[Rfam]
RNA sequence: AUCACCGUGAUGGGAGAACCGGUGCCGCUGAUGUGGCCCGGUGCCGAAGGAGCAACCGCCCCGGAAACUCUCAGGCCACAAGGACCGUCAUGGUGAC
Numbered sequence: 001a002u003c004a005c006c007g008u009g010a011u012g013g014g015a016g017a018a019c020c021g022g023u024g025c026c027g028c029u030g031a032u033g034u035g036g037c038c039c040g041g042u043g044c045c046g047a048a049g050g051a052g053c054a055a056c057c058g059c060c061c062c063g064g065a066a067a068c069u070c071u072c073a074g075g076c077c078a079c080a081a082g083g084a085c086c087g088u089c090a091u092g093g094u095g096a097c
Base pairs, nucleotide, nucleotide: 006092007091008090009089010088011087012086013085019041020040021039022038043076044075045074046072047071050070051069052068056064057063
Glycine riboswitch aptamer: a 97-nucleotide sequence from Salipiger pallidus. Pairs were carried over by alignment from the consensus structure. Its family is annotated with glycine biosynthetic process in the Gene Ontology. The match comes from Rfam's covariance-model search (54 bits).